[Rfam]
RNA sequence: UUUGAGGGGAAUGUUGUCUGGCUCGAGGACACUUUGUUUGAUCCCUUUUUCUCUCCUCUCUCUGAUCAAUCUAAUUAAUACCACCAAUUGGGGAUAGUGUUUUGGUCAUGUUUUAGUGUCGUCGGACCAGGCUUCAUUCCCCCCAAU
Dot-bracket structure: .(((.((((((((..((((((..(((...............................................................................................)))..))))))..)))))))).))).
mir-166 microRNA precursor family: a 147-nucleotide sequence from Juglans regia. The literature on the family includes a 2002 paper in Genes Dev by Reinhart et al., "MicroRNAs in plants". This family represents the plant microRNA (miRNA) precursor mir-166. Its family is annotated with miRNA-mediated post-transcriptional gene silencing and RISC complex in the Gene Ontology. The match comes from Rfam's covariance-model search (85 bits). The base pairs follow the family's consensus structure, which was predicted with PFOLD.